The record is a 161-nucleotide RNA from Hipposideros armiger, which matches "U1 spliceosomal RNA" in Rfam. A reference for the family is Charenton et al. (2019), "Mechanism of 5' splice site transfer for human spliceosome activation", Science. Pairs were carried over by alignment from the consensus structure, which is taken from published work. U1 is a small nuclear RNA (snRNA) component of the spliceosome (involved in pre-mRNA splicing). NCBI's taxonomy places the organism under Eukaryota, Gnathostomata, Mammalia, Chiroptera, Hipposideros. The family's RNA type in Rfam is spliceosomal small nuclear RNA.
[Rfam]
RNA sequence: AUGUUUACCUGGUGGGGGAGAUACCGUGAUCCUGAAGGUGGCUUUCCCAGGGUGAGAUUCACCCACUGCACUCUGAUUAUGCAGGCCCUUGCGAUUUCCCCAAAUGUGGGAAACUCGACUGCAUGAUUUGUUGUAGUGGACUGUGUUUGUGCUUUUCCCUA
Numbered sequence: 001a002u003g004u005u006u007a008c009c010u011g012g013u014g015g016g017g018g019a020g021a022u023a024c025c026g027u028g029a030u031c032c033u034g035a036a037g038g039u040g041g042c043u044u045u046c047c048c049a050g051g052g053u054g055a056g057a058u059u060c061a062c063c064c065a066c067u068g069c070a071c072u073c074u075g076a077u078u079a080u081g082c083a084g085g086c087c088c089u090u091g092c093g094a095u096u097u098c099c100c101c102a103a104a105u106g107u108g109g110g111a112a113a114c115u116c117g118a119c120u121g122c123a124u125g126a127u128u129u130g131u132u133g134u135a136g137u138g139g140a141c142u143g144u145g146u147u148u149g150u151g152c153u154u155u156u157c158c159c160u161a
Base pairs, nucleotide, nucleotide: 012122013121014120015119016048017047018046019045020044021043024041025040026039027038049090050089051088052087054086058081061078064075092117093116094115095113096112097111099109100108138158139157140155143152144151145150